This 109-nucleotide RNA from Bacillus sp. FJAT-49711 belongs to the Rfam family "epsC RNA".
The family has 30 seed sequences and 450 matches in Rfam 15.1.
The base pairs follow the family's consensus structure, which is taken from published work.
By type it is a cis-regulatory element.
A search with the family's covariance model found it, with a score of 112 bits.
RNA sequence: UGGUAAUGCCUCCUAACCAAUAUCAAUGGAGGCACUCGAUCAUGCUGUGGGUUCAUGACCUUAGACGCGAGUCGUCGUUAGUGUGGUGUGAGGAGGGGUUAGAUGCCCC
Dot-bracket structure: [[[[..(((((((..]]]]........)))))))((((((((((((..(((((...)))))..((((.....))))...)))))))).))))..(((((.....)))))
Numbered sequence: 001u002g003g004u005a006a007u008g009c010c011u012c013c014u015a016a017c018c019a020a021u022a023u024c025a026a027u028g029g030a031g032g033c034a035c036u037c038g039a040u041c042a043u044g045c046u047g048u049g050g051g052u053u054c055a056u057g058a059c060c061u062u063a064g065a066c067g068c069g070a071g072u073c074g075u076c077g078u079u080a081g082u083g084u085g086g087u088g089u090g091a092g093g094a095g096g097g098g099u100u101a102g103a104u105g106c107c108c109c
Stems, first nucleotide, its partner, number of pairs: 001019004007034007035092004039087008049061005064076004095109005

The organism belongs to Bacillus, within Bacteria.